[Rfam]
RNA sequence: GUAUUAUCGUGAGUUCCCUUCAAGCACUUCACGUGACACUAUUUCAAUGUCUAUCAUGUGAAGUGUUUGGGGGAACUCUUGGUAUCGC
Dot-bracket structure: ....(((((.((((((((((.(((((((((((((((.................))))))))))))))))))))))))).)))))....
Numbered sequence: 001g002u003a004u005u006a007u008c009g010u011g012a013g014u015u016c017c018c019u020u021c022a023a024g025c026a027c028u029u030c031a032c033g034u035g036a037c038a039c040u041a042u043u044u045c046a047a048u049g050u051c052u053a054u055c056a057u058g059u060g061a062a063g064u065g066u067u068u069g070g071g072g073g074a075a076c077u078c079u080u081g082g083u084a085u086c087g088c
Stems, first nucleotide, its partner, number of pairs: 005084005011078010022068015